[Rfam]
RNA sequence: CGGAGCAGCCGCGGCGCCGGCCCGACUCCGGUACCUGGCACGGCCGGGGCGG
Numbered sequence: 001c002g003g004a005g006c007a008g009c010c011g012c013g014g015c016g017c018c019g020g021c022c023c024g025a026c027u028c029c030g031g032u033a034c035c036u037g038g039c040a041c042g043g044c045c046g047g048g049g050c051g052g
Stems, first nucleotide, its partner, number of pairs: 001016002005012002022052003026049007

The family of this 52-nucleotide RNA from Nonomuraea phyllanthi is "L17-Actino-Proteobacteria ribosomal protein leader".
The literature on the family includes a 2020 paper in BMC Microbiol by Eckert and Weinberg, "Discovery of 20 novel ribosomal leader candidates in bacteria and archaea".
The source organism's lineage runs through Bacteria, Bacillati, Actinomycetota, Streptosporangiaceae and Nonomuraea.
The match comes from Rfam's covariance-model search (45 bits).